Shown here is a 70-nucleotide sequence from Neoroseomonas alkaliterrae, a member of the family "terC RNA".

RNA sequence: GGGCUGAUCCGGGCCCCUCUGGCGGCCGCGCGCGCUCCCGGCGCGGCGUCCGCGAUGUCGGAUCGCGUGG
Numbered sequence: 001g002g003g004c005u006g007a008u009c010c011g012g013g014c015c016c017c018u019c020u021g022g023c024g025g026c027c028g029c030g031c032g033c034g035c036u037c038c039c040g041g042c043g044c045g046g047c048g049u050c051c052g053c054g055a056u057g058u059c060g061g062a063u064c065g066c067g068u069g070g
Stems, first nucleotide, its partner, number of pairs: 006064007022053004027048003
Pairs were carried over by alignment from the consensus structure, which is taken from published work. The match comes from Rfam's covariance-model search (48 bits).